Shown here is a 91-nucleotide sequence from Erycina pusilla, a member of the family "Plastid-rps12 3UTR RNA".
The family's consensus secondary structure was predicted with LocARNA.
The sequence is in the family's curated seed alignment.
Taxonomically the source falls in Erycina (Eukaryota, Tracheophyta, Mesangiospermae, Cymbidieae).
The literature on the family includes a 2023 paper in Plant Commun by Richter et al., "Retrograde signaling in plants: A critical review focusing on the GUN pathway and beyond".
Plastid rpl20 is a non-coding RNA (ncRNA) recognised in plastids. It was found in the three prime untranslated region (3UTR) of rps12 gene, its 3UTR location sugest a role in transcript maduration.
RNA sequence: GGUUUCUAUUGGUGCAAAUCCAAUCACUCCUUUUGAGAUGAGAAGAAAUUCUCCAUUGAUAACAAAUAGUUAUUCAUUAAGCGGAGAAAAA
Number, nucleotide and partner (000 for none) at each position: 001g000002g000003u000004u000005u000006c000007u000008a000009u023010u022011g021012g020013u000014g000015c000016a000017a000018a000019u000020c012021c011022a010023a009024u000025c000026a000027c000028u000029c000030c000031u000032u000033u000034u000035g000036a000037g000038a000039u000040g000041a000042g000043a000044a000045g000046a000047a000048a000049u000050u000051c086052u085053c084054c083055a077056u076057u000058g074059a073060u072061a071062a070063c069064a000065a000066a000067u000068a000069g063070u062071u061072a060073u059074u058075c000076a056077u055078u000079a000080a000081g000082c000083g054084g053085a052086g051087a000088a000089a000090a000091a000